Annotation:
The record is a 68-nucleotide sequence from Prochlorococcus marinus, which matches "Cyano-1 RNA" in Rfam. It scores 52 bits against the family's covariance model. The source organism's lineage runs through Bacteria, Bacillati, Cyanobacteriota, Cyanophyceae and Prochlorococcus marinus.
RNA sequence: GAAAACGUGAGGAGUUGAGAUUCACUAAGGAGUCGAAACUAGGAAAGACUUCCUUGUUGAAUCUCAAA
Numbered sequence: 001g002a003a004a005a006c007g008u009g010a011g012g013a014g015u016u017g018a019g020a021u022u023c024a025c026u027a028a029g030g031a032g033u034c035g036a037a038a039c040u041a042g043g044a045a046a047g048a049c050u051u052c053c054u055u056g057u058u059g060a061a062u063c064u065c066a067a068a
Base pairs, nucleotide, nucleotide: 019063020062021061022060023059024058029053030052031051032049033048034047